[Rfam]
RNA sequence: UAGGUUCCGGUUCACGCCAGCCAGAGGGGCAUGGCGACCCGGGUCACC
Numbered sequence: 001u002a003g004g005u006u007c008c009g010g011u012u013c014a015c016g017c018c019a020g021c022c023a024g025a026g027g028g029g030c031a032u033g034g035c036g037a038c039c040c041g042g043g044u045c046a047c048c
Stems, first nucleotide, its partner, number of pairs: 003048003007042004015036005020030003
L31-Actinobacteria ribosomal protein leader: a 48-nucleotide RNA sequence from Bifidobacterium callitrichos. It scores 41 bits against the family's covariance model. Rfam classes the family as a cis-regulatory leader. The family is grouped with related families in Rfam's "Ribosomal Protein L31 Leader clan".